[Rfam]
RNA sequence: AGAACCUGCCUUUCAGGCAUCCUCUCCUAAAACUUUCCAGGGUCAGCUUCGGCUGGCCCUUUUUUUAUCCUGGG
Numbered sequence: 001a002g003a004a005c006c007u008g009c010c011u012u013u014c015a016g017g018c019a020u021c022c023u024c025u026c027c028u029a030a031a032a033c034u035u036u037c038c039a040g041g042g043u044c045a046g047c048u049u050c051g052g053c054u055g056g057c058c059c060u061u062u063u064u065u066u067a068u069c070c071u072g073g074g
Stems, first nucleotide, its partner, number of pairs: 008018004039060009
The family of this 74-nucleotide sequence from Sphingobium fluviale is "Makes More Granules Regulator RNA (mmgR)". It is annotated as a small RNA. A search with the family's covariance model found it, with a score of 46 bits. Its Rfam clan is "suhB sRNA clan". About the family: SuhB later renamed mmgR (makes more granules regulator) was a putative non-coding RNA found multiple times in the Agrobacterium tumefaciens genome and related alpha-proteobacteria. Other non-coding RNAs uncovered in the same analysis include: speF, ybhL, metA, and serC.Several studies inSinorhizobium meliloti showed that suhB element is indeed a non-coding RNA:firstly it was detected on Northern blot and called Sm8RNA, secondly in an RNAseq study referred to as SmelC689.The mutant phenotype's (strain lacking the small RNA) cytoplasm contains higher content of polyhydroxybutyrate (PBH)storage granules than wild type strain. The sRNA is required to limit the PBH intracellular accumulation when the nitrogen-fixing Sinorhizobium meliloti is under condition of surplus carbon in relation to nitrogen.